[Rfam]
RNA: ffh sRNA
RNA sequence: UGCGGUCGGGAUCGCCACCAGUCAGCGCGUUGCGCCCACUGGUGCGCUUGUC
Numbered sequence: 001u002g003c004g005g006u007c008g009g010g011a012u013c014g015c016c017a018c019c020a021g022u023c024a025g026c027g028c029g030u031u032g033c034g035c036c037c038a039c040u041g042g043u044g045c046g047c048u049u050g051u052c
Stems, first nucleotide, its partner, number of pairs: 016044007025035004
Dot-bracket structure: ...............(((((((..((((...))))..)))))))........